Ribosomal protein L20 leader: a 112-nucleotide RNA sequence from Clostridium sulfidigenes.
The match comes from Rfam's covariance-model search (61 bits).
The family's consensus secondary structure was predicted with CMfinder.
This family is a putative r-protein leader autoregulatory structure found in B. subtilis and other low-GC Gram-positive bacteria. It is located in the 5' untranslated regions of mRNAs encoding initiation factor 3 followed by ribosomal proteins L35 and L20 (infC-rpmI-rplT).
For this family Rfam cites "Diverse mechanisms for regulating ribosomal protein synthesis in Escherichia coli" (Zengel and Lindahl, Prog Nucleic Acid Res Mol Biol, 1994).
It is annotated as a cis-regulatory leader.

[Rfam]
RNA sequence: AUUAACAAGUAGAAACUGCCGUUUCUCACCUUACAGUACUGCUAGUAAGGUAAAAUUUUGGUUUACAAUGAUUGUAAUAACAGGACGGCGUUUGCUGUCCUUUUUAUUUUAU
Numbered sequence: 001a002u003u004a005a006c007a008a009g010u011a012g013a014a015a016c017u018g019c020c021g022u023u024u025c026u027c028a029c030c031u032u033a034c035a036g037u038a039c040u041g042c043u044a045g046u047a048a049g050g051u052a053a054a055a056u057u058u059u060g061g062u063u064u065a066c067a068a069u070g071a072u073u074g075u076a077a078u079a080a081c082a083g084g085a086c087g088g089c090g091u092u093u094g095c096u097g098u099c100c101u102u103u104u105u106a107u108u109u110u111a112u
Base pairs, nucleotide, nucleotide: 011026012025013024014023015022016021028051029050030049033046034045035043036042084099085098086097087096088095089094
Dot-bracket structure: ..........((((((....)))))).(((..((((.....)).))..)))................................((((((....)))))).............